[Rfam]
RNA: Bacillaceae-1 RNA
RNA sequence: GAGGAAGGAUCGGCGGCUAACCGCCCAGGCAUCCUGCCUGAACGCCGCCGUCAUCACCUUCUGUGAA
Numbered sequence: 001g002a003g004g005a006a007g008g009a010u011c012g013g014c015g016g017c018u019a020a021c022c023g024c025c026c027a028g029g030c031a032u033c034c035u036g037c038c039u040g041a042a043c044g045c046c047g048c049c050g051u052c053a054u055c056a057c058c059u060u061c062u063g064u065g066a067a
Stems, first nucleotide, its partner, number of pairs: 011050007026040005054066004
Dot-bracket structure: ..........(((((((........(((((.....)))))...)))))))...((((.....)))).